tRNA: a 72-nucleotide sequence from Leuconostoc carnosum.
Taxonomically the source falls in Leuconostoc carnosum (Bacteria, Bacillati, Bacilli, Lactobacillaceae).
Rfam classes the family as a transfer RNA.
RNA sequence: UGCUCCAUAGUUCAGUGGUAGAAUAACGCACUGUUAAUGCGCAGGUCCUUGGUUCGAAUCCAAGUGGAGCAG
Numbered sequence: 001u002g003c004u005c006c007a008u009a010g011u012u013c014a015g016u017g018g019u020a021g022a023a024u025a026a027c028g029c030a031c032u033g034u035u036a037a038u039g040c041g042c043a044g045g046u047c048c049u050u051g052g053u054u055c056g057a058a059u060c061c062a063a064g065u066g067g068a069g070c071a072g
Base pairs, nucleotide, nucleotide: 001071002070003069004068005067006066007065010024011023012022013021027041028040029039030038048064049063050062051061052060